Background: Shown here is a 137-nucleotide RNA sequence from Kalanchoe fedtschenkoi, a member of the family "MIR390 microRNA precursor family".

[Rfam]
RNA sequence: GAGGAGAAUCUGUUAAGCUCAGGAGGGAUAGCGCCCGUGGCUCUGGCUGUGACAUCUGAUCCGUCGUGUGAUCAUGUGUUUCAGCUCAUCAGCAUGCAUGGUGGCGCUAUCCAUCCUGAGUUUCAUGGCUUCUUCUU
Numbered sequence: 001g002a003g004g005a006g007a008a009u010c011u012g013u014u015a016a017g018c019u020c021a022g023g024a025g026g027g028a029u030a031g032c033g034c035c036c037g038u039g040g041c042u043c044u045g046g047c048u049g050u051g052a053c054a055u056c057u058g059a060u061c062c063g064u065c066g067u068g069u070g071a072u073c074a075u076g077u078g079u080u081u082c083a084g085c086u087c088a089u090c091a092g093c094a095u096g097c098a099u100g101g102u103g104g105c106g107c108u109a110u111c112c113a114u115c116c117u118g119a120g121u122u123u124c125a126u127g128g129c130u131u132c133u134u135c136u137u
Stems, first nucleotide, its partner, number of pairs: 010128001016122009026112010
NCBI's taxonomy places the organism under Eukaryota, Viridiplantae, Magnoliopsida, eudicotyledons, Kalanchoe. It scores 89 bits against the family's covariance model. The base pairs follow the family's consensus structure, which was predicted with WAR. On this family, see Xie et al., Plant Physiol 2005: "Expression of Arabidopsis MIRNA genes".